This 74-nucleotide sequence from Dactylococcopsis salina belongs to the Rfam family "Cyano-1 RNA". It is annotated as a small RNA.
[Rfam]
RNA sequence: UGGUGAGUGAGGAGUAAUCGAACGGGAAGGCUCUAGGGGUCGAAACAUGGCAAGACUCCCUAGAGUUUUUCAUU
Numbered sequence: 001u002g003g004u005g006a007g008u009g010a011g012g013a014g015u016a017a018u019c020g021a022a023c024g025g026g027a028a029g030g031c032u033c034u035a036g037g038g039g040u041c042g043a044a045a046c047a048u049g050g051c052a053a054g055a056c057u058c059c060c061u062a063g064a065g066u067u068u069u070u071c072a073u074u
Base pairs, nucleotide, nucleotide: 015072026071027070028069029068030067031065032064036060037059038058039056040055041054